[Rfam]
RNA: Eukaryotic small subunit ribosomal RNA, nucleotides 1852 to 1996
RNA sequence: CACCGCCCGUCGCUACCAUCGGUGAACGGUCUAGCGAGGGCCUCGGACUGGCAAUUCGCUGCCGGGAAGACGCCCGAACUAGUUCGCUUGGAGAUAGUAAAAGUCGUAACAAGGUUUCCGUAGGUGAACUGCGGAAGGAUCAUUA
Numbered sequence: 001c002a003c004c005g006c007c008c009g010u011c012g013c014u015a016c017c018a019u020c021g022g023u024g025a026a027c028g029g030u031c032u033a034g035c036g037a038g039g040g041c042c043u044c045g046g047a048c049u050g051g052c053a054a055u056u057c058g059c060u061g062c063c064g065g066g067a068a069g070a071c072g073c074c075c076g077a078a079c080u081a082g083u084u085c086g087c088u089u090g091g092a093g094a095u096a097g098u099a100a101a102a103g104u105c106g107u108a109a110c111a112a113g114g115u116u117u118c119c120g121u122a123g124g125u126g127a128a129c130u131g132c133g134g135a136a137g138g139a140u141c142a143u144u145a
Stems, first nucleotide, its partner, number of pairs: 003113001005110001008106002011103001014099003018095003023090003027086003031082004038075004043070002048065006115137009